[Rfam]
RNA: Rhodo-rpoB RNA
RNA sequence: CGAUCGGGAGGCCAUCCUUGGGACGAUGGCCAUGAAUUGAUCAGAAUCCUACCGUCUCGAAAGGGCGAGAUACCGGUGCCCAACGGUAUUUUCG
Numbered sequence: 001c002g003a004u005c006g007g008g009a010g011g012c013c014a015u016c017c018u019u020g021g022g023a024c025g026a027u028g029g030c031c032a033u034g035a036a037u038u039g040a041u042c043a044g045a046a047u048c049c050u051a052c053c054g055u056c057u058c059g060a061a062a063g064g065g066c067g068a069g070a071u072a073c074c075g076g077u078g079c080c081c082a083a084c085g086g087u088a089u090u091u092u093c094g
Base pairs, nucleotide, nucleotide: 002042003041004040005039010031011030012029013028014027015026016025066094067093068092069091070090071088072087073086074085075084